[Rfam]
RNA sequence: AGAGCCUCCAUGAUUCCAGCUUCCUGCUGGGAAUGAGGAUGGGGAGUGUGAUGUAAGAACUGUUUUCCCAGGUAAAGAACUCUGGCAACAUUCUGCAGUCCCUGGAAAAGCUGUGUUCCCUUCAGGGGUGUGGAUUUGUGUGCAG
Dot-bracket structure: ...((...(((((.((((..((((((..((((((.((..((((((.(((......((((.((((...((((((.....)).)))).))))))))))).))))))......))..))))))..))))))..)))).))))).))..
A member of the RNA family "mir-8927 microRNA precursor family" from Equus caballus, 145 nucleotides long. It is one of the family's seed sequences. Lineage of the source: Eukaryota > Opisthokonta > Metazoa > Theria > Equus. Gene Ontology terms of the family: RISC complex and miRNA-mediated post-transcriptional gene silencing. The base pairs follow the family's consensus structure, which was predicted with RNAalifold.